Shown here is a 134-nucleotide RNA from Lupinus angustifolius, a member of the family "MIR168 microRNA precursor family".
The family's consensus secondary structure was predicted with WAR.
[Rfam]
RNA sequence: CAUCGCGCGGUCUCUAAUUCGCUUGGUGCAGGUCGGGAACCGCUGCUGCUUCGGCACGUAUUGAAGGGUGCGGUGGUUGCCGGCGGCGAAUUGGAUCCCGCCUUGCAUCAACUGAAUCGGAGGCCGCUUGGUUU
Number, nucleotide and partner (000 for none) at each position: 001c000002a000003u000004c000005g000006c000007g000008c000009g000010g000011u000012c000013u121014c120015u000016a000017a117018u116019u115020c114021g000022c000023u111024u110025g109026g108027u107028g106029c105030a104031g103032g102033u000034c100035g099036g098037g097038a096039a000040c094041c093042g000043c000044u000045g000046c000047u000048g000049c000050u000051u000052c000053g000054g000055c000056a000057c000058g000059u000060a000061u000062u000063g000064a000065a000066g000067g000068g000069u000070g000071c000072g000073g000074u000075g000076g000077u000078u000079g000080c000081c000082g000083g000084c000085g000086g000087c000088g000089a000090a000091u000092u000093g041094g040095a000096u038097c037098c036099c035100g034101c000102c032103u031104u030105g029106c028107a027108u026109c025110a024111a023112c000113u000114g020115a019116a018117u017118c000119g000120g014121a013122g000123g000124c000125c000126g000127c000128u000129u000130g000131g000132u000133u000134u000